[Rfam]
RNA sequence: CAGCUACUUUUAACACGAGCUACUUGGGUACUUUUGACUGAUGAUUUAAUAGUCAGGUACCUGAAGUAGCGCGCGCUACGAGUAAGCA
Numbered sequence: 001c002a003g004c005u006a007c008u009u010u011u012a013a014c015a016c017g018a019g020c021u022a023c024u025u026g027g028g029u030a031c032u033u034u035u036g037a038c039u040g041a042u043g044a045u046u047u048a049a050u051a052g053u054c055a056g057g058u059a060c061c062u063g064a065a066g067u068a069g070c071g072c073g074c075g076c077u078a079c080g081a082g083u084a085a086g087c088a
Base pairs, nucleotide, nucleotide: 009080011078012077014075016073017072019070020069021068022067030058031057033056036054037053038052039051